[Rfam]
RNA sequence: CCCUAGCCCUGAUUGACACGGCAUCCUUUUGGGUUGGCGUGAGGCGGCGGAGCGGAGCGGAGCCGUCCGAGCACCAACACAAAAGAUAUAGUGGAAAGCAGGUUCUCGG
Numbered sequence: 001c002c003c004u005a006g007c008c009c010u011g012a013u014u015g016a017c018a019c020g021g022c023a024u025c026c027u028u029u030u031g032g033g034u035u036g037g038c039g040u041g042a043g044g045c046g047g048c049g050g051a052g053c054g055g056a057g058c059g060g061a062g063c064c065g066u067c068c069g070a071g072c073a074c075c076a077a078c079a080c081a082a083a084a085g086a087u088a089u090a091g092u093g094g095a096a097a098g099c100a101g102g103u104u105c106u107c108g109g
Stems, first nucleotide, its partner, number of pairs: 009101003013097002018092002023087003029082003033078004